[Rfam]
RNA sequence: AAGUGUUACAACUCUUUUAGAAUUUGUGUGGCAGGUUUUCUGGUUUUCACCAGAAAUCUUUU
Numbered sequence: 001a002a003g004u005g006u007u008a009c010a011a012c013u014c015u016u017u018u019a020g021a022a023u024u025u026g027u028g029u030g031g032c033a034g035g036u037u038u039u040c041u042g043g044u045u046u047u048c049a050c051c052a053g054a055a056a057u058c059u060u061u062u
Base pairs, nucleotide, nucleotide: 034059035058037056038055039054040053041052042051043050044049
The record is a 62-nucleotide RNA from Callithrix jacchus, which matches "U7 small nuclear RNA" in Rfam. Pairs were carried over by alignment from the consensus structure, which was predicted with PFOLD. The source organism's lineage runs through Eukaryota, Bilateria, Teleostomi, Callithrix and Callithrix. Animal histone pre-mRNAs are spliced by a different mechanism than nuclear pre-mRNAs and self-splicing introns. This processing involves the U7 snRNP, which contains only one RNA species: U7. The 5' end of U7 RNA is thought to base-pair to a conserved spacer element downstream of the cleavage site in histone pre-mRNA. This family contains a number of annotated U7 pseudogenes.